Eukaryotic large subunit ribosomal RNA: a 435-nucleotide part of an RNA from Cloeon dipterum. The match comes from Rfam's covariance-model search (2876 bits). NCBI's taxonomy places the organism under Eukaryota, Metazoa, Ecdysozoa, Insecta, Cloeon. Pairs were carried over by alignment from the consensus structure, which is taken from published work.

RNA sequence: CGACCUCGGAUCAGGCGGGACUACCCGCCGAAUUUAAGCAUAUUAGUAAGCGGAGGAAAAGAAACUAACAAGGAUUCCCCGAGUAACGGCGAGCGAAAGGGGAAGAGCCCAGCGCGCAGUCCCCGGGUCCCUGCGGCCCGCGGGAGAUUCCGCGUUUGGGAGGGUCGCUCCUCCCGGGGUGCGGCGGCCGGUCCAAGUCCCUCUUGAAUGGGGCCACGGUCCUUAGAAGGUGCCAGGCCUGUGGGAUGGUUGCCGCUCCCGGGAAGACCUCUCCCUAGAGUCGGGUUGCUUGAGAGUGCAGCCCUAAGCUGGUGGUAAACUCCAUCAAAGGCUAAAUACAACCACGUGACCGAUAGCAAACAAGUACCGUGAGGGAAAGUUGAAAAGAACUUUGAAGAGAGAGUUCAAGAGUACGUGAAACCGUUCGGGGGUAAA
Numbered sequence: 001c002g003a004c005c006u007c008g009g010a011u012c013a014g015g016c017g018g019g020a021c022u023a024c025c026c027g028c029c030g031a032a033u034u035u036a037a038g039c040a041u042a043u044u045a046g047u048a049a050g051c052g053g054a055g056g057a058a059a060a061g062a063a064a065c066u067a068a069c070a071a072g073g074a075u076u077c078c079c080c081g082a083g084u085a086a087c088g089g090c091g092a093g094c095g096a097a098a099g100g101g102g103a104a105g106a107g108c109c110c111a112g113c114g115c116g117c118a119g120u121c122c123c124c125g126g127g128u129c130c131c132u133g134c135g136g137c138c139c140g141c142g143g144g145a146g147a148u149u150c151c152g153c154g155u156u157u158g159g160g161a162g163g164g165u166c167g168c169u170c171c172u173c174c175c176g177g178g179g180u181g182c183g184g185c186g187g188c189c190g191g192u193c194c195a196a197g198u199c200c201c202u203c204u205u206g207a208a209u210g211g212g213g214c215c216a217c218g219g220u221c222c223u224u225a226g227a228a229g230g231u232g233c234c235a236g237g238c239c240u241g242u243g244g245g246a247u248g249g250u251u252g253c254c255g256c257u258c259c260c261g262g263g264a265a266g267a268c269c270u271c272u273c274c275c276u277a278g279a280g281u282c283g284g285g286u287u288g289c290u291u292g293a294g295a296g297u298g299c300a301g302c303c304c305u306a307a308g309c310u311g312g313u314g315g316u317a318a319a320c321u322c323c324a325u326c327a328a329a330g331g332c333u334a335a336a337u338a339c340a341a342c343c344a345c346g347u348g349a350c351c352g353a354u355a356g357c358a359a360a361c362a363a364g365u366a367c368c369g370u371g372a373g374g375g376a377a378a379g380u381u382g383a384a385a386a387g388a389a390c391u392u393u394g395a396a397g398a399g400a401g402a403g404u405u406c407a408a409g410a411g412u413a414c415g416u417g418a419a420a421c422c423g424u425u426c427g428g429g430g431g432u433a434a435a
Stems, first nucleotide, its partner, number of pairs: 024055001025053004035042002065072002076103005087093001106333004113154004118149002120145004124140005159274002162270003168266002178259002181256004187250003191247003197214001199213002202211002222226001229239002283304007310327005367374002390401004